Source information
The family of this 77-nucleotide RNA is "S6-S18-Chlorobi ribosomal protein leader".
RNA sequence: UUGCAGAUGGUGUUCCCCUUUAAUGGUUGAAGCCGUGGGGCUGAUUAGCGCAAUGUCAGACCCUCACCAUAUUGCAA
Number, nucleotide and partner (000 for none) at each position: 001u077002u076003g075004c074005a073006g072007a070008u069009g068010g067011u066012g065013u031014u030015c029016c000017c026018c025019u000020u000021u000022a000023a000024u000025g018026g017027u000028u000029g015030a014031a013032g000033c000034c000035g000036u000037g064038g063039g062040g061041c059042u058043g057044a056045u000046u000047a000048g000049c000050g000051c000052a000053a000054u000055g000056u044057c043058a042059g041060a000061c040062c039063c038064u037065c012066a011067c010068c009069a008070u007071a000072u006073u005074g004075c003076a002077a001

Pairs were carried over by alignment from the consensus structure, which is taken from published work. For this family Rfam cites "Discovery of 20 novel ribosomal leader candidates in bacteria and archaea" (Eckert and Weinberg, BMC Microbiol, 2020). Rfam's curators put it in the seed alignment. By type it is a cis-regulatory leader.